[Rfam]
RNA sequence: ACUGUUGUUGCAAUAGUAAUUGAACUUAGUACGAGAGGAACCGUUCAUUCAGAUAAUUGGUAUUUGGCCCUGUCUGAGCAGGCAUUGGGCCGAAGCUACCAUCUGCUGGAUUAUGGCUGAACGCCUCUAAGUCAGAAUCCAUGCUAGAAGCGACGACCUUACCUCGCACGUUGGAGUUGGAUACGAAUAAGACUUUUGUCGCGGAACCAUAGCAGGCUGGCGCUGGGUGCGUGGUGGAAAGACCGCGUGCCUUUGCCGGUGGAUAGCAAUGUCACGAUGCGCGGGGAUAAAUCCUUUGCAUACGACUUAGAUGUACAACGGGGUAUUGUAAGCGGUAGAGUAGCCUUGUUGUUACGAUCCGCUGAGAUUAAGCCUUUGUUGUCGGGUUUGU
Numbered sequence: 001a002c003u004g005u006u007g008u009u010g011c012a013a014u015a016g017u018a019a020u021u022g023a024a025c026u027u028a029g030u031a032c033g034a035g036a037g038g039a040a041c042c043g044u045u046c047a048u049u050c051a052g053a054u055a056a057u058u059g060g061u062a063u064u065u066g067g068c069c070c071u072g073u074c075u076g077a078g079c080a081g082g083c084a085u086u087g088g089g090c091c092g093a094a095g096c097u098a099c100c101a102u103c104u105g106c107u108g109g110a111u112u113a114u115g116g117c118u119g120a121a122c123g124c125c126u127c128u129a130a131g132u133c134a135g136a137a138u139c140c141a142u143g144c145u146a147g148a149a150g151c152g153a154c155g156a157c158c159u160u161a162c163c164u165c166g167c168a169c170g171u172u173g174g175a176g177u178u179g180g181a182u183a184c185g186a187a188u189a190a191g192a193c194u195u196u197u198g199u200c201g202c203g204g205a206a207c208c209a210u211a212g213c214a215g216g217c218u219g220g221c222g223c224u225g226g227g228u229g230c231g232u233g234g235u236g237g238a239a240a241g242a243c244c245g246c247g248u249g250c251c252u253u254u255g256c257c258g259g260u261g262g263a264u265a266g267c268a269a270u271g272u273c274a275c276g277a278u279g280c281g282c283g284g285g286g287a288u289a290a291a292u293c294c295u296u297u298g299c300a301u302a303c304g305a306c307u308u309a310g311a312u313g314u315a316c317a318a319c320g321g322g323g324u325a326u327u328g329u330a331a332g333c334g335g336u337a338g339a340g341u342a343g344c345c346u347u348g349u350u351g352u353u354a355c356g357a358u359c360c361g362c363u364g365a366g367a368u369u370a371a372g373c374c375u376u377u378g379u380u381g382u383c384g385g386g387u388u389u390g391u
Base pairs, nucleotide, nucleotide: 004157005156006155007154008153009152010151011150014146015145016144017143019049021047022046023045024044025043050105051104052103053102054101058098059097060096065092066091067090068089069088071084072083073082074081075080107141108140109139114134115133116132117131118130163285164284165283166282167281169279289389290388291387292386293385294310295309298306315382316381317380318379319378320377321375322374323373325368326367332362333361334360335359337358340355341354342353343352344351
Eukaryotic large subunit ribosomal RNA: a 391-nucleotide part of an RNA from Sungouiella intermedia. Taxonomically the source falls in Sungouiella (Eukaryota, Opisthokonta, Dikarya, saccharomyceta). A search with the family's covariance model found it, with a score of 3284 bits. Rfam links the family to the GO terms ribosome and structural constituent of ribosome.